[Rfam]
Nucleotides: 084
Base pairs, nucleotide, nucleotide: 002039003038004037005036006035007034008033009032012029013028016023017022046084047083048082049081050080051079052078053077054076055075056074057073058072059071060070061069
Number, partner (000 for none) and nucleotide at each position: 001000a002039c003038g004037c005036c006035c007034g008033c009032c010000c011000c012029g013028u014000a015000c016023g017022g018000c019000c020000c021000c022017c023016c024000g025000u026000u027000c028013a029012c030000c031000c032009g033008g034007c035006g036005g037004g038003c039002g040000g041000a042000a043000a044000a045000c046084c047083g048082g049081a050080a051079g052078c053077c054076c055075c056074c057073g058072c059071g060070a061069g062000g063000a064000c065000g066000u067000g068000c069061c070060u071059c072058g073057c074056g075055g076054g077053g078052g079051c080050u081049u082048c083047c084046g

The family of this 84-nucleotide RNA sequence from Streptomyces fungicidicus is "sodF sRNA". Rfam classes the family as a small RNA.